[Rfam]
RNA sequence: AGGUGCUUUUCCUCAAUGACACGUUUUCUUCCGGUUUGCAGACGACAGCAAACGCAACCGGGAAUUUCGUGUCAGCCAAGAAUGACACCU
Numbered sequence: 001a002g003g004u005g006c007u008u009u010u011c012c013u014c015a016a017u018g019a020c021a022c023g024u025u026u027u028c029u030u031c032c033g034g035u036u037u038g039c040a041g042a043c044g045a046c047a048g049c050a051a052a053c054g055c056a057a058c059c060g061g062g063a064a065u066u067u068c069g070u071g072u073c074a075g076c077c078a079a080g081a082a083u084g085a086c087a088c089c090u
Stems, first nucleotide, its partner, number of pairs: 001090005007084001009082003017074007029063006036057004
A member of the RNA family "mir-731 microRNA precursor family" from Parambassis ranga, 90 nucleotides long. NCBI's taxonomy places the organism under Eukaryota, Deuterostomia, Gnathostomata, Neoteleostei, Parambassis.